[Rfam]
RNA: Molybdenum/Tungsten riboswitch aptamer (Moco RNA motif)
Organism: Syntrophobacter fumaroxidans
RNA sequence: AGAACGGUCGCUCCCCGAGCCGCCGGGUCUAAGGCUUUUGCGGCGGCCGGCAGGGUGUGCCUGGAAACGGGCAUGCCUCCCGUUGCGGAAAGGGGAGCAGGUCAAACCGGG
Numbered sequence: 001a002g003a004a005c006g007g008u009c010g011c012u013c014c015c016c017g018a019g020c021c022g023c024c025g026g027g028u029c030u031a032a033g034g035c036u037u038u039u040g041c042g043g044c045g046g047c048c049g050g051c052a053g054g055g056u057g058u059g060c061c062u063g064g065a066a067a068c069g070g071g072c073a074u075g076c077c078u079c080c081c082g083u084u085g086c087g088g089a090a091a092g093g094g095g096a097g098c099a100g101g102u103c104a105a106a107c108c109g110g111g
Base pairs, nucleotide, nucleotide: 006102011097012096013095014094015093016092019047020046021045022044023043024042025041026036027035028034029033053078054077055076056075057074058073059072060071061070062069063068079088080087